The record is an 88-nucleotide RNA from Planomicrobium sp. CPCC 101110, which matches "BsrC" in Rfam. The literature on the family includes a 2008 paper in Gene by Saito et al., "Novel small RNA-encoding genes in the intergenic regions of Bacillus subtilis". From the family's description: The 301 nucleotide sequence from Kouji Nakamura has been trimmed to a highly conserved ~85 nucleotide long core to form this family. The match comes from Rfam's covariance-model search (69 bits).
RNA sequence: UCUAACUUAAGCAACGUAAACCCUGCCUUCUUUUACGUCCUUGCGAUCCUUAAAUCGCGCCAGUGUGAAUAAGUAUUCUCAAAAACUU
Numbered sequence: 001u002c003u004a005a006c007u008u009a010a011g012c013a014a015c016g017u018a019a020a021c022c023c024u025g026c027c028u029u030c031u032u033u034u035a036c037g038u039c040c041u042u043g044c045g046a047u048c049c050u051u052a053a054a055u056c057g058c059g060c061c062a063g064u065g066u067g068a069a070u071a072a073g074u075a076u077u078c079u080c081a082a083a084a085a086c087u088u
Stems, first nucleotide, its partner, number of pairs: 036067002040063002042059006
Dot-bracket structure: ...................................((..((((((((......))))))..))..)).....................